[Rfam]
RNA sequence: AUUUUUCGUGUACCCUCAAAGGCUUCCAGUAUUCAGUAAGCUAAGAUACUUGAAUGCUGGAGGCUUUUGAAGGAAUUUGAAACCU
Numbered sequence: 001a002u003u004u005u006u007c008g009u010g011u012a013c014c015c016u017c018a019a020a021g022g023c024u025u026c027c028a029g030u031a032u033u034c035a036g037u038a039a040g041c042u043a044a045g046a047u048a049c050u051u052g053a054a055u056g057c058u059g060g061a062g063g064c065u066u067u068u069g070a071a072g073g074a075a076u077u078u079g080a081a082a083c084c085u
Stems, first nucleotide, its partner, number of pairs: 006080003010076002013073002016070008025061010
A member of the RNA family "MIR862_2 microRNA precursor family" from Vigna radiata, 85 nucleotides long. The base pairs follow the family's consensus structure, which was predicted with RNAalifold. A search with the family's covariance model found it, with a score of 76 bits.